[Rfam]
RNA sequence: AUACUUACCUGGCAGGAGAGGUACCAUGAUCAUGAAGGUGGUUUCUCCAGGGUGAGGCUUAUUCAUUGCCCUCCAGAUGUGCUGACCCCUGCAAUUUCCCCAAAUGUGGGAAACUCGAUGCACAAUUUGUGAUAGGGGGAAAAAAAUUCUGUUGCAUUAUCUU
Number, nucleotide and partner (000 for none) at each position: 001a000002u000003a000004c000005u000006u000007a000008c000009c000010u000011g000012g121013c120014a119015g048016g047017a046018g045019a044020g043021g000022u000023a042024c041025c040026a039027u038028g000029a000030u000031c000032a000033u000034g000035a000036a000037g000038g027039u026040g025041g024042u023043u020044u019045c018046u017047c016048c015049a090050g089051g088052g087053u000054g086055a000056g083057g082058c081059u000060u079061a078062u077063u076064c000065a000066u000067u000068g000069c000070c000071c000072u000073c000074c000075a000076g063077a062078u061079g060080u000081g058082c057083u056084g000085a000086c054087c052088c051089c050090u049091g000092c117093a000094a115095u113096u112097u111098c000099c109100c108101c000102a000103a000104a000105u000106g000107u000108g100109g099110g000111a097112a096113a095114c000115u094116c000117g092118a000119u014120g013121c012122a000123c000124a000125a000126u000127u000128u000129g000130u000131g000132a000133u000134a000135g000136g000137g000138g000139g163140a162141a000142a000143a160144a000145a158146a157147u156148u000149c000150u000151g000152u000153u000154g000155c000156a147157u146158u145159a000160u143161c000162u140163u139
This 163-nucleotide sequence from Molossus molossus belongs to the Rfam family "U1 spliceosomal RNA".
The family's consensus secondary structure is taken from published work.
Taxonomically the source falls in Molossus (Eukaryota, Bilateria, Teleostomi, Amniota).
By type it is a spliceosomal small nuclear RNA.